[Rfam]
RNA sequence: CUACUCCCUCCGUCUCAUAAUAUAAGAACGUUUUAUACACUAGUGUAGUGUAAAAAACGCUCAGUGUAUAAAACAUUCUUAUAUUAUGGGACGGAGGGAGUAA
Numbered sequence: 001c002u003a004c005u006c007c008c009u010c011c012g013u014c015u016c017a018u019a020a021u022a023u024a025a026g027a028a029c030g031u032u033u034u035a036u037a038c039a040c041u042a043g044u045g046u047a048g049u050g051u052a053a054a055a056a057a058c059g060c061u062c063a064g065u066g067u068a069u070a071a072a073a074c075a076u077u078c079u080u081a082u083a084u085u086a087u088g089g090g091a092c093g094g095a096g097g098g099a100g101u102a103a
Stems, first nucleotide, its partner, number of pairs: 003101003007097005013091005019085010030074012
Shown here is a 103-nucleotide RNA sequence from Aegilops tauschii, a member of the family "MIR1120/MIR1122 microRNA precursor family".
A reference for the family is Yao et al. (2007), "Cloning and characterization of microRNAs from wheat (Triticum aestivum L.)", Genome Biol.
The family's consensus secondary structure was predicted with RNAalifold.
Taxonomically the source falls in Aegilops tauschii (Eukaryota, Viridiplantae, Petrosaviidae, Triticodae).